RNA sequence: CCUCUGGAGCAUUACAUCAAACGCAAGUAGCUUCGUGCUUGCGCGGGCAAAAGCGGAUGCGAUGAAUGAGGAA
Numbered sequence: 001c002c003u004c005u006g007g008a009g010c011a012u013u014a015c016a017u018c019a020a021a022c023g024c025a026a027g028u029a030g031c032u033u034c035g036u037g038c039u040u041g042c043g044c045g046g047g048c049a050a051a052a053g054c055g056g057a058u059g060c061g062a063u064g065a066a067u068g069a070g071g072a073a
Stems, first nucleotide, its partner, number of pairs: 001071004009060005022055003030048003034043002
Source information
Rfam assigns this 73-nucleotide sequence to the family "RAGATH-18 RNA". It is one of the family's seed sequences. About the family: Actinobacteria, Firmicutes, Fusobacteria, Thermotogae (1 example).